[Rfam]
RNA sequence: GACAGUGUCGCAAUAGUAAUUCAACCUAGUACGAGAGGAACCGUUGAUUCGCACAAUUGGUCAUCGCGCUUGGUUGAAAAGCCAGUGGCGCGAAGCUACCGUGCGCUGGAUUAUGACUGAACGCCUCUAAGUCAGAAUCCAGGCUAGAAGCGACGCGUGUGCCCGCCGCCUGUUUGCCGACUAGCAGUAGGGGCCUCGGCCCCCAAAGGCACGUGUCGUUGGCUAAGCCUGUGCGACGGAUGAGUCGUGCAGGCCGCCAUGAAGUAUAAUUCCCAUCAAGCGGCGGGUAGAAUCCUUUGCAGACGACUUAAAUACGCGACGGGGUAUUGUAAGUGGCAGAGUGGCCUUGCUGCCACGAUCCACUGAGAUUCAGCCCUGCGUCGCUCAGAUUCGU
Numbered sequence: 001g002a003c004a005g006u007g008u009c010g011c012a013a014u015a016g017u018a019a020u021u022c023a024a025c026c027u028a029g030u031a032c033g034a035g036a037g038g039a040a041c042c043g044u045u046g047a048u049u050c051g052c053a054c055a056a057u058u059g060g061u062c063a064u065c066g067c068g069c070u071u072g073g074u075u076g077a078a079a080a081g082c083c084a085g086u087g088g089c090g091c092g093a094a095g096c097u098a099c100c101g102u103g104c105g106c107u108g109g110a111u112u113a114u115g116a117c118u119g120a121a122c123g124c125c126u127c128u129a130a131g132u133c134a135g136a137a138u139c140c141a142g143g144c145u146a147g148a149a150g151c152g153a154c155g156c157g158u159g160u161g162c163c164c165g166c167c168g169c170c171u172g173u174u175u176g177c178c179g180a181c182u183a184g185c186a187g188u189a190g191g192g193g194c195c196u197c198g199g200c201c202c203c204c205a206a207a208g209g210c211a212c213g214u215g216u217c218g219u220u221g222g223c224u225a226a227g228c229c230u231g232u233g234c235g236a237c238g239g240a241u242g243a244g245u246c247g248u249g250c251a252g253g254c255c256g257c258c259a260u261g262a263a264g265u266a267u268a269a270u271u272c273c274c275a276u277c278a279a280g281c282g283g284c285g286g287g288u289a290g291a292a293u294c295c296u297u298u299g300c301a302g303a304c305g306a307c308u309u310a311a312a313u314a315c316g317c318g319a320c321g322g323g324g325u326a327u328u329g330u331a332a333g334u335g336g337c338a339g340a341g342u343g344g345c346c347u348u349g350c351u352g353c354c355a356c357g358a359u360c361c362a363c364u365g366a367g368a369u370u371c372a373g374c375c376c377u378g379c380g381u382c383g384c385u386c387a388g389a390u391u392c393g394u
Stems, first nucleotide, its partner, number of pairs: 005156007014146004019049001021047005050105005058098003065092005070085006107141003114134005163286007290392005296310001299307001316384006322376003326369002333363004338359001341356005
Eukaryotic large subunit ribosomal RNA: a 394-nucleotide part of an RNA from Lactuca sativa. NCBI's taxonomy places the organism under Eukaryota, Viridiplantae, Tracheophyta, Cichorioideae, Lactuca. A search with the family's covariance model found it, with a score of 3345 bits. Its Rfam clan is "LSU clan".